[Rfam]
Ascomycota telomerase RNA: a 442-nucleotide part of an RNA from Chaetomium sp. MPI-SDFR-AT-0129. It scores 1072 bits against the family's covariance model. The organism belongs to Chaetomium, within Eukaryota.
RNA sequence: ACACAUACGGAAAGACGAUUGCUGGGCUGGGCAUUGGACUGCCGGGACCUUCUACACUUGGCUACCGAUCUUGAUGGAAUCUGCACCGACGACGGCGAGGCUCAGCUACCGUUCUGAUCCCGCAGAGGGUCUUGAUAAUCUGUGAGGGAUGGGGUUGAAGGGUUGGUCAGCUAGCUAAGAACCAAUGCUCCGGCUUGGGUAUGCCGAAUGACGGCGGCUAGUUGGUACGGUCUGGGUGCCGGGACCCAUCUCGAGUUGGAGUCAAAGCUUUGUGCUUGUCCGGUGUCUGGCGCUCGUAUUAUCUGGCCGUUCAGAUUUCGGAGUACCUUGGGAAGAGCUUUGCUGUUUGCGGCCGCACCUGUUGGAAAAGGACGAGCCCUUGGGGGUGGUCCAGGCCACACUCUCUCCAGAAAUGGCGGGAGAGUGGCCCCUCUUUUUGAGG
Numbered sequence: 001a002c003a004c005a006u007a008c009g010g011a012a013a014g015a016c017g018a019u020u021g022c023u024g025g026g027c028u029g030g031g032c033a034u035u036g037g038a039c040u041g042c043c044g045g046g047a048c049c050u051u052c053u054a055c056a057c058u059u060g061g062c063u064a065c066c067g068a069u070c071u072u073g074a075u076g077g078a079a080u081c082u083g084c085a086c087c088g089a090c091g092a093c094g095g096c097g098a099g100g101c102u103c104a105g106c107u108a109c110c111g112u113u114c115u116g117a118u119c120c121c122g123c124a125g126a127g128g129g130u131c132u133u134g135a136u137a138a139u140c141u142g143u144g145a146g147g148g149a150u151g152g153g154g155u156u157g158a159a160g161g162g163u164u165g166g167u168c169a170g171c172u173a174g175c176u177a178a179g180a181a182c183c184a185a186u187g188c189u190c191c192g193g194c195u196u197g198g199g200u201a202u203g204c205c206g207a208a209u210g211a212c213g214g215c216g217g218c219u220a221g222u223u224g225g226u227a228c229g230g231u232c233u234g235g236g237u238g239c240c241g242g243g244a245c246c247c248a249u250c251u252c253g254a255g256u257u258g259g260a261g262u263c264a265a266a267g268c269u270u271u272g273u274g275c276u277u278g279u280c281c282g283g284u285g286u287c288u289g290g291c292g293c294u295c296g297u298a299u300u301a302u303c304u305g306g307c308c309g310u311u312c313a314g315a316u317u318u319c320g321g322a323g324u325a326c327c328u329u330g331g332g333a334a335g336a337g338c339u340u341u342g343c344u345g346u347u348u349g350c351g352g353c354c355g356c357a358c359c360u361g362u363u364g365g366a367a368a369a370g371g372a373c374g375a376g377c378c379c380u381u382g383g384g385g386g387u388g389g390u391c392c393a394g395g396c397c398a399c400a401c402u403c404u405c406u407c408c409a410g411a412a413a414u415g416g417c418g419g420g421a422g423a424g425u426g427g428c429c430c431c432u433c434u435u436u437u438u439g440a441g442g
Stems, first nucleotide, its partner, number of pairs: 243263003246259003265277004